The record is a 190-nucleotide sequence from Molossus molossus, which matches "U2 spliceosomal RNA" in Rfam.
The family's consensus secondary structure is taken from published work.
A reference for the family is Newby and Greenbaum (2001), "A conserved pseudouridine modification in eukaryotic U2 snRNA induces a change in branch-site architecture", RNA.
Rfam's curators write: U2 is a small nuclear RNA (snRNA) component of the spliceosome (involved in pre-mRNA splicing).
The source organism's lineage runs through Eukaryota, Metazoa, Tetrapoda, Amniota and Molossus.

RNA sequence: AUCACUUUUCGGCAUUUUGGCUAAGAUCAAGUGUAGUAUCUAUUCUUAUCAGUUUAAUAUCUAAUAUGUCCUCUAUCCAAGGACAGUAGUUAAAUGGAUUUGGGGGAUUGGGAUAUGGAAUAGGAGCUUGCUCUGUCCACUACAUACAUUGACCUGCUAUUGCAGUACUUCUAGGAACGGUGCACACACA
Numbered sequence: 001a002u003c004a005c006u007u008u009u010c011g012g013c014a015u016u017u018u019g020g021c022u023a024a025g026a027u028c029a030a031g032u033g034u035a036g037u038a039u040c041u042a043u044u045c046u047u048a049u050c051a052g053u054u055u056a057a058u059a060u061c062u063a064a065u066a067u068g069u070c071c072u073c074u075a076u077c078c079a080a081g082g083a084c085a086g087u088a089g090u091u092a093a094a095u096g097g098a099u100u101u102g103g104g105g106g107a108u109u110g111g112g113a114u115a116u117g118g119a120a121u122a123g124g125a126g127c128u129u130g131c132u133c134u135g136u137c138c139a140c141u142a143c144a145u146a147c148a149u150u151g152a153c154c155u156g157c158u159a160u161u162g163c164a165g166u167a168c169u170u171c172u173a174g175g176a177a178c179g180g181u182g183c184a185c186a187c188a189c190a
Stems, first nucleotide, its partner, number of pairs: 007026003011022003047066003051062002068084005111143001113141001117137002123134004147182005153175004